[Rfam]
RNA sequence: AGUCACUGAAGAGGUGCCGAGCCUAACAGUAACCGAGGUCAGACAGUGUGGUGUCGACGACCCUCGGCGAAAGGAGGCUCGGCCGAAGCGGCCCGGUCCUACACGACCGGCUCGCUGGGUCCGGGUUGAAGAAGCCCGGGACUGUCGCAGCUUGAUGCUGCGGAGCGCUAUGGACCUU
Numbered sequence: 001a002g003u004c005a006c007u008g009a010a011g012a013g014g015u016g017c018c019g020a021g022c023c024u025a026a027c028a029g030u031a032a033c034c035g036a037g038g039u040c041a042g043a044c045a046g047u048g049u050g051g052u053g054u055c056g057a058c059g060a061c062c063c064u065c066g067g068c069g070a071a072a073g074g075a076g077g078c079u080c081g082g083c084c085g086a087a088g089c090g091g092c093c094c095g096g097u098c099c100u101a102c103a104c105g106a107c108c109g110g111c112u113c114g115c116u117g118g119g120u121c122c123g124g125g126u127u128g129a130a131g132a133a134g135c136c137c138g139g140g141a142c143u144g145u146c147g148c149a150g151c152u153u154g155a156u157g158c159u160g161c162g163g164a165g166c167g168c169u170a171u172g173g174a175c176c177u178u
Base pairs, nucleotide, nucleotide: 006173007172008171010169011168016083017082018081019080020079021078022077023076024075033067034066035065036064037063038062087116088115089114090113091112093110094109095108096107097106098105117143118142120140121139122138123137124136125135126134127133145163146162147161148160149159150158151157